[Rfam]
RNA sequence: GCCGAGGUUGGUAACUCUAGCUUGUCACCCAAGUGGGGGCCCUGAGGUGUUGGAACACUGAGUCAGCCCAACGGGUUGGAUCUUGGUUGGCUGAUUAUUGGCCUGCCCUGUCCAAGCCUUGAGUGAUACAUGUGGCCUGGAUGAAGAUUUGGGCUUCAUGGAUCUUAGAGAGGAGGGCACCGCGUGAGGCUGGUUUCACAGAGCAGCGAUAACCCCCCGCUCUCGGCAGUGGAAGGAUUACAGGCCAGUGCCACCUUUACCCGCCAUGGCCCAGAGGGUUGAUUACAAUUGGACCAACACUUUU
Numbered sequence: 001g002c003c004g005a006g007g008u009u010g011g012u013a014a015c016u017c018u019a020g021c022u023u024g025u026c027a028c029c030c031a032a033g034u035g036g037g038g039g040c041c042c043u044g045a046g047g048u049g050u051u052g053g054a055a056c057a058c059u060g061a062g063u064c065a066g067c068c069c070a071a072c073g074g075g076u077u078g079g080a081u082c083u084u085g086g087u088u089g090g091c092u093g094a095u096u097a098u099u100g101g102c103c104u105g106c107c108c109u110g111u112c113c114a115a116g117c118c119u120u121g122a123g124u125g126a127u128a129c130a131u132g133u134g135g136c137c138u139g140g141a142u143g144a145a146g147a148u149u150u151g152g153g154c155u156u157c158a159u160g161g162a163u164c165u166u167a168g169a170g171a172g173g174a175g176g177g178c179a180c181c182g183c184g185u186g187a188g189g190c191u192g193g194u195u196u197c198a199c200a201g202a203g204c205a206g207c208g209a210u211a212a213c214c215c216c217c218c219g220c221u222c223u224c225g226g227c228a229g230u231g232g233a234a235g236g237a238u239u240a241c242a243g244g245c246c247a248g249u250g251c252c253a254c255c256u257u258u259a260c261c262c263g264c265c266a267u268g269g270c271c272c273a274g275a276g277g278g279u280u281g282a283u284u285a286c287a288a289u290u291g292g293a294c295c296a297a298c299a300c301u302u303u304u
Stems, first nucleotide, its partner, number of pairs: 001040003004023003008019001010017002028037003044303010056291002059287002061284006068277002073272005078262002081259001085255002088253003092250002098248008107236002111233004116227003121222004125164003129160004134155009165170001172217002175214002183208003190201003